[Rfam]
RNA sequence: AGCUUUGCGCAGUGGCAGUAUCGUAGCCAAUGAGUUUAUCCAAGGCGCGAUUAUUGCUAAUUGAAAACUUUUACCGAUACCCCACCGGGAGGACUUGCAAUAUAGUUGCCAUUGGCAAUUUUUGACAGUCUCUAUGGAGA
Number, nucleotide and partner (000 for none) at each position: 001a000002g000003c000004u000005u000006u000007g000008c000009g000010c000011a000012g000013u000014g000015g000016c000017a000018g000019u000020a051021u050022c049023g048024u047025a000026g046027c045028c044029a000030a000031u000032g000033a000034g040035u000036u000037u000038a000039u000040c034041c000042a000043a000044g028045g027046c026047g024048c023049g022050a021051u020052u000053a000054u000055u000056g000057c000058u000059a000060a000061u000062u000063g000064a000065a000066a000067a000068c000069u000070u000071u000072u000073a000074c000075c000076g000077a000078u000079a000080c000081c000082c000083c000084a000085c115086c114087g112088g000089g110090a000091g000092g107093a106094c105095u104096u000097g000098c000099a000100a000101u000102a000103u000104a095105g094106u093107u092108g000109c000110c089111a000112u087113u000114g086115g085116c000117a000118a000119u000120u000121u000122u000123u000124g000125a000126c000127a000128g000129u140130c139131u138132c137133u000134a000135u000136g000137g132138a131139g130140a129

A member of the RNA family "U4 spliceosomal RNA" from Callithrix jacchus, 140 nucleotides long. Lineage of the source: Eukaryota > Dipnotetrapodomorpha > Mammalia > Callithrix > Callithrix. It is annotated as a spliceosomal small nuclear RNA. U4 small nuclear RNA (U4 snRNA) is a component of the major U2-dependent spliceosome. For this family Rfam cites "Mechanism of 5' splice site transfer for human spliceosome activation" (Charenton et al., Science, 2019). A search with the family's covariance model found it, with a score of 98 bits.